[Rfam]
Shown here is an 85-nucleotide sequence from Panthera tigris, a member of the family "tRNA".
Lineage of the source: Eukaryota > Opisthokonta > Gnathostomata > Laurasiatheria > Panthera tigris.
Rfam classes the family as a transfer RNA.
RNA sequence: GCCUGGGUGGCUCAGUCGGUUGAGCAUCUGACUUCGGCUCAGGUCAUGAUCUCACGGUUUGUGGGUUCGAAUCCCACAUCGGGCU
Dot-bracket structure: ((((((...((((........)))).(((((.......))))).................(((((.......))))).)))))).